Shown here is an 84-nucleotide RNA sequence from Paenibacillus nuruki, a member of the family "c-di-GMP-I-GGC riboswitch aptamer". Lineage of the source: Bacteria > Bacillati > Bacillota > Bacilli > Paenibacillus. The match comes from Rfam's covariance-model search (67 bits). Rfam 15.1 lists 1,298 matches to the family in 717 species. The family is grouped with related families in Rfam's "c-di-GMP_I riboswitch clan".

RNA sequence: CACGAUAAUGGCAAACCUGUCGAAAGACUGGGACGCAAAGCUAAAGGGCCUUACCUCUUAGAGGUUGGCAGCCAGCCACCGAAU
Numbered sequence: 001c002a003c004g005a006u007a008a009u010g011g012c013a014a015a016c017c018u019g020u021c022g023a024a025a026g027a028c029u030g031g032g033a034c035g036c037a038a039a040g041c042u043a044a045a046g047g048g049c050c051u052u053a054c055c056u057c058u059u060a061g062a063g064g065u066u067g068g069c070a071g072c073c074a075g076c077c078a079c080c081g082a083a084u
Stems, first nucleotide, its partner, number of pairs: 003081002011036002016031002019028003034071001040076003046073002048069003
Dot-bracket structure: ..((......((...((.(((....))).))..[))...(((...(((((................))).])))))...))...